[Rfam]
TD-2 RNA: an 87-nucleotide RNA from Treponema sp. JC4.
RNA sequence: UCGUACAGGAUGUGCGAAAUUGCAGAGUUUGCUUUUUAGCAAACUCUGAGUGAACAAAAAUACAUGGAUGUAUUUUUGUUCACCCCC
Number, nucleotide and partner (000 for none) at each position: 001u017002c016003g015004u014005a013006c012007a000008g000009g000010a000011u000012g006013u005014g004015c003016g002017a001018a000019a000020u000021u000022g000023c000024a047025g046026a045027g044028u043029u042030u041031g040032c039033u038034u000035u000036u000037u000038a033039g032040c031041a030042a029043a028044c027045u026046c025047u024048g000049a000050g083051u082052g081053a080054a079055c078056a077057a076058a075059a074060a073061u072062a071063c070064a000065u000066g000067g000068a000069u000070g063071u062072a061073u060074u059075u058076u057077u056078g055079u054080u053081c052082a051083c050084c000085c000086c000087c000
The match comes from Rfam's covariance-model search (51 bits). The family's consensus secondary structure is taken from published work.